[Rfam]
RNA sequence: CGUCUCCUCCACUUCUUCACCAAGAAUUGGAUUUAGCCCGCUCCUGUAGCGGGCUUUUUUUU
Numbered sequence: 001c002g003u004c005u006c007c008u009c010c011a012c013u014u015c016u017u018c019a020c021c022a023a024g025a026a027u028u029g030g031a032u033u034u035a036g037c038c039c040g041c042u043c044c045u046g047u048a049g050c051g052g053g054c055u056u057u058u059u060u061u062u
Stems, first nucleotide, its partner, number of pairs: 008031004013026003035055008

This 62-nucleotide RNA sequence from Pseudoduganella ginsengisoli belongs to the Rfam family "Betaproteobacteria toxic small RNA". A reference for the family is Kimelman et al. (2012), "A vast collection of microbial genes that are toxic to bacteria", Genome Res. The base pairs follow the family's consensus structure, which was predicted with WAR. Overexpression in amino aid rich medium attenuates growth, suggesting role in repressing amino acid intake and metabolism.